[Rfam]
RNA sequence: GAUGGAAAAUGAAGCAAAACUCUUAUCCUAUACGCUGAACCAGAUGUAGACUACAACUCCACUUAUUAUCUGAUUCCUUC
Dot-bracket structure: ...((((..................................................................))))...
Numbered sequence: 001g002a003u004g005g006a007a008a009a010u011g012a013a014g015c016a017a018a019a020c021u022c023u024u025a026u027c028c029u030a031u032a033c034g035c036u037g038a039a040c041c042a043g044a045u046g047u048a049g050a051c052u053a054c055a056a057c058u059c060c061a062c063u064u065a066u067u068a069u070c071u072g073a074u075u076c077c078u079u080c
Stems, first nucleotide, its partner, number of pairs: 004077004